Small nucleolar RNA SNORA77: a 132-nucleotide sequence from Crypturellus undulatus.
RNA sequence: GCAGACUCACUCUGUGCCGAACUGCAGUCUUCGGUUCAGGCGCUUUUUCUGUCUGCAAAAGUAAUAGUUCAUGGGUGUGAAAAACGCUUCUUUUAUGUAGAAGUCUGUUACAGUUGCUCUUGGUACAUUGUU
Numbered sequence: 001g002c003a004g005a006c007u008c009a010c011u012c013u014g015u016g017c018c019g020a021a022c023u024g025c026a027g028u029c030u031u032c033g034g035u036u037c038a039g040g041c042g043c044u045u046u047u048u049c050u051g052u053c054u055g056c057a058a059a060a061g062u063a064a065u066a067g068u069u070c071a072u073g074g075g076u077g078u079g080a081a082a083a084a085c086g087c088u089u090c091u092u093u094u095a096u097g098u099a100g101a102a103g104u105c106u107g108u109u110a111c112a113g114u115u116g117c118u119c120u121u122g123g124u125a126c127a128u129u130g131u132u
Stems, first nucleotide, its partner, number of pairs: 001056006014043005019037002022034003069123003073119003077114002
Dot-bracket structure: ((((((.......(((((((.(((.......))).)).))))).......))))))............(((.(((.((..................................))..))).))).........
On this family, see Schattner et al., RNA 2006: "A computational screen for mammalian pseudouridylation guide H/ACA RNAs". Rfam's curators write: ACA63 (SNORA77) is a member of the H/ACA class of snoRNAs that guide the sites of modification of uridines to pseudouridines. This snoRNA was identified by computational screening and its expression in mouse experimentally verified by Northern blot and primer extension analysis. ACA63 is proposed to guide the pseudouridylation of 18S rRNA U814. Lineage of the source: Eukaryota > Metazoa > Teleostomi > Tetrapoda > Crypturellus. The family's RNA type in Rfam is H/ACA-box small nucleolar RNA.